[Rfam]
Nucleotides: 144
Stems, first nucleotide, its partner, number of pairs: 005064006011057002024044005092138003099131002105125002107122001109121002112118002
Number, partner (000 for none) and nucleotide at each position: 001000u002000u003000c004000a005064u006063g007062g008061c009060c010059g011057g012056c013000a014000g015000c016000a017000a018000u019000g020000g021000c022000a023000u024044a025043c026042a027041g028040u029000u030000c031000c032000u033000u034000a035000a036000u037000g038000a039000g040028a041027c042026u043025g044024u045000a046000u047000u048000c049000u050000u051000a052000u053000a054000a055000c056012g057011u058000u059010u060009g061008g062007c063006u064005a065000g066000a067000a068000c069000a070000a071000a072000u073000a074000u075000c076000c077000u078000a079000u080000c081000a082000u083000a084000u085000c086000c087000g088000u089000a090000g091000c092138g093137u094136c095000u096000u097000u098000a099131u100130g101000u102000g103000u104000a105125a106124u107122u108000a109121g110120c111000a112118g113117a114000c115000a116000u117113u118112u119000g120110g121109c122107g123000u124106a125105u126000g127000a128000a129000u130100u131099g132000a133000a134000g135000u136094g137093a138092c139000a140000g141000c142000c143000u144000u
This 144-nucleotide RNA sequence from Drosophila busckii belongs to the Rfam family "Small nucleolar RNA psi28S-2876". The source organism's lineage runs through Eukaryota, Protostomia, Acalyptratae, Drosophilini and Dorsilopha. The base pairs follow the family's consensus structure, which was predicted with PFOLD. The match comes from Rfam's covariance-model search (118 bits). From the family's description: psi28S-2876 is a member of the H/ACA class of snoRNA. This family is responsible for guiding the modification of uridines 2876 and 2956 to pseudouridine in Drosophila 28S rRNA.